[Rfam]
Shown here is an 87-nucleotide RNA from Gadus morhua, a member of the family "Small nucleolar RNA SNORD60". Gene Ontology terms of the family: nucleolus and RNA processing. Lineage of the source: Eukaryota > Opisthokonta > Chordata > Gadidae > Gadus. Clan: SNORD60 clan. Rfam classes the family as a C/D-box small nucleolar RNA. For this family Rfam cites "Purified box C/D snoRNPs are able to reproduce site-specific 2'-O-methylation of target RNA in vitro" (Galardi et al., Mol Cell Biol, 2002). It scores 56 bits against the family's covariance model.
RNA sequence: AGCCAUUGAUGACAAACUUUUUAUUUCUGACACCUCGUAUGAGAGCUAUUCAUUAGCUCCUGUGAUUCUAUUUAUCUUCUGAGGCCU
Number, nucleotide and partner (000 for none) at each position: 001a000002g085003c084004c083005a000006u000007u000008g000009a000010u000011g000012a000013c000014a000015a000016a000017c000018u000019u000020u000021u000022u000023a000024u000025u000026u000027c000028u000029g000030a000031c000032a000033c000034c000035u000036c000037g000038u000039a000040u000041g000042a000043g000044a000045g057046c056047u055048a054049u000050u000051c000052a000053u000054u048055a047056g046057c045058u000059c000060c000061u000062g000063u000064g000065a000066u000067u000068c000069u000070a000071u000072u000073u000074a000075u000076c000077u000078u000079c000080u000081g000082a000083g004084g003085c002086c000087u000